[Rfam]
Archaeal large subunit ribosomal RNA: a 291-nucleotide part of an RNA from uncultured marine crenarchaeote KM3-153-F8. NCBI's taxonomy places the organism under Archaea, Thermoproteati, Nitrososphaerota, Nitrososphaeria, Nitrosopumilales. Pairs were carried over by alignment from the consensus structure, which is taken from published work. It is one of the family's seed sequences.
RNA sequence: AGUUGUCUGAGGGGAACUUGCUCUCAGUACGAGAGGAACAGGGCAAGGCGGCCUCUGGUGUACCGGUUGUUCGACAGAGCACCGCCGGGCAGCUAAGCUGUUGUGGAUUAAGAGCUGAAAGCAUCUAAGCUCGAAGCCACUCCCGAGAAAAGACAGCUAUUUGUUUUUAAUUUCCUUCGGGAAAUUGAAUCAAAGAAGAAUCGUUAUAGAAGAUGACGUUGAUGGUUUGGAAGUGUAAGUUGGGAGGUUUCGACCGACCAAUUUAGCUUGCCAAUCCCAAUUUUUCAAAGU
Numbered sequence: 001a002g003u004u005g006u007c008u009g010a011g012g013g014g015a016a017c018u019u020g021c022u023c024u025c026a027g028u029a030c031g032a033g034a035g036g037a038a039c040a041g042g043g044c045a046a047g048g049c050g051g052c053c054u055c056u057g058g059u060g061u062a063c064c065g066g067u068u069g070u071u072c073g074a075c076a077g078a079g080c081a082c083c084g085c086c087g088g089g090c091a092g093c094u095a096a097g098c099u100g101u102u103g104u105g106g107a108u109u110a111a112g113a114g115c116u117g118a119a120a121g122c123a124u125c126u127a128a129g130c131u132c133g134a135a136g137c138c139a140c141u142c143c144c145g146a147g148a149a150a151a152g153a154c155a156g157c158u159a160u161u162u163g164u165u166u167u168u169a170a171u172u173u174c175c176u177u178c179g180g181g182a183a184a185u186u187g188a189a190u191c192a193a194a195g196a197a198g199a200a201u202c203g204u205u206a207u208a209g210a211a212g213a214u215g216a217c218g219u220u221g222a223u224g225g226u227u228u229g230g231a232a233g234u235g236u237a238a239g240u241u242g243g244g245a246g247g248u249u250u251c252g253a254c255c256g257a258c259c260a261a262u263u264u265a266g267c268u269u270g271c272c273a274a275u276c277c278c279a280a281u282u283u284u285u286c287a288a289a290g291u
Base pairs, nucleotide, nucleotide: 001158002157003156004155005154006153007152008151011144012143013142014141017047018046019045020044021043022042023041024040048101049100050099051098052097056095057094058093063088064087065086066085067084068081069080070079071078072077104139105138106137112132113131114130115129116128198286199285200284202218203217204216205215206214223279224278225277227274228273229272230271231269232268233267239262240261241260242259243258246255